[Rfam]
RNA sequence: UUUUCCACUGCGGCACCGAGGGCACGCGCUUCCUCAGGGGGGACUUGGAGUCCCGGAGAAUUGCCUUUGUGAAAACCUGGCAAUAAUUCCUUUAAAUUCCAUCUCUUAGUUUUCCGUGUAAGUAUUCGCAGUUGCUGCAGGUGGUGGUGAAGAAUUC
Numbered sequence: 001u002u003u004u005c006c007a008c009u010g011c012g013g014c015a016c017c018g019a020g021g022g023c024a025c026g027c028g029c030u031u032c033c034u035c036a037g038g039g040g041g042g043a044c045u046u047g048g049a050g051u052c053c054c055g056g057a058g059a060a061u062u063g064c065c066u067u068u069g070u071g072a073a074a075a076c077c078u079g080g081c082a083a084u085a086a087u088u089c090c091u092u093u094a095a096a097u098u099c100c101a102u103c104u105c106u107u108a109g110u111u112u113u114c115c116g117u118g119u120a121a122g123u124a125u126u127c128g129c130a131g132u133u134g135c136u137g138c139a140g141g142u143g144g145u146g147g148u149g150a151a152g153a154a155u156u157c
Stems, first nucleotide, its partner, number of pairs: 006080001010077001016071001017069008026061001040054004085156005091151002098144002

ODC internal ribosome entry site (IRES): a 157-nucleotide RNA sequence from Crocuta crocuta.
Rfam links the family to the GO term ribosome binding.
NCBI's taxonomy places the organism under Eukaryota, Opisthokonta, Eumetazoa, Chordata, Crocuta.
The family's consensus secondary structure was predicted with mfold.
It scores 90 bits against the family's covariance model.